[Rfam]
sul1 RNA: a 64-nucleotide RNA sequence. It is annotated as a riboswitch.
RNA sequence: CCUGGACCCGCGCCCCUGAGGGGCUUGCGGGUGGCUAUUCCGGCCGCCGAUCCGCCGGAGCAAU
Dot-bracket structure: .....((((((((((.....))))..))))))......((((((.........)))))).....